[Rfam]
Glycine riboswitch aptamer: an 89-nucleotide RNA sequence from Pelagibacterales bacterium SAG-MED41. It scores 68 bits against the family's covariance model. NCBI's taxonomy places the organism under Bacteria, Pseudomonadati, Pseudomonadota, Alphaproteobacteria, Candidatus Pelagibacterales.
RNA sequence: AAUUCAUGAUCGGGAGAGACUAAGCAAUUUUUAGCGCCGAAGGAGCAACCACCCCGGAAACUCUCAGGCAAAAGGACCGAUUUAGGCAU
Numbered sequence: 001a002a003u004u005c006a007u008g009a010u011c012g013g014g015a016g017a018g019a020c021u022a023a024g025c026a027a028u029u030u031u032u033a034g035c036g037c038c039g040a041a042g043g044a045g046c047a048a049c050c051a052c053c054c055c056g057g058a059a060a061c062u063c064u065c066a067g068g069c070a071a072a073a074g075g076a077c078c079g080a081u082u083u084a085g086g087c088a089u
Stems, first nucleotide, its partner, number of pairs: 008082006020034004036069003039065002043063003049057002